[Rfam]
RNA sequence: UGGUUCGUAAGAUAUGUUUGAUAUUCUUGGUUGUUAUAUUUGAAACCGACCGGGAAUCGGACAUAUUCUACGGCCUC
Numbered sequence: 001u002g003g004u005u006c007g008u009a010a011g012a013u014a015u016g017u018u019u020g021a022u023a024u025u026c027u028u029g030g031u032u033g034u035u036a037u038a039u040u041u042g043a044a045a046c047c048g049a050c051c052g053g054g055a056a057u058c059g060g061a062c063a064u065a066u067u068c069u070a071c072g073g074c075c076u077c
Base pairs, nucleotide, nucleotide: 005073006072007071008070009069011067012066013065014064015063016062017061018060019059020058021057022056024054025053029051030050031049032048033047

mir-190 microRNA precursor family: a 77-nucleotide RNA sequence from Sipha flava. A reference for the family is Kloosterman et al. (2006), "Cloning and expression of new microRNAs from zebrafish", Nucleic Acids Res. Lineage of the source: Eukaryota > Eumetazoa > Allotriocarida > Paraneoptera > Sipha.